[Rfam]
RNA: SmY spliceosomal RNA
Organism: Oesophagostomum dentatum
RNA sequence: AACUCUUUAAGUAUAUAUACAGGGCCUUCAGGAAGACCCAAUGAACAAUUUUUGAGGACCUCUGCAUAGAAGCAGGGGUG
Numbered sequence: 001a002a003c004u005c006u007u008u009a010a011g012u013a014u015a016u017a018u019a020c021a022g023g024g025c026c027u028u029c030a031g032g033a034a035g036a037c038c039c040a041a042u043g044a045a046c047a048a049u050u051u052u053u054g055a056g057g058a059c060c061u062c063u064g065c066a067u068a069g070a071a072g073c074a075g076g077g078g079u080g
Stems, first nucleotide, its partner, number of pairs: 022039003026035003058079008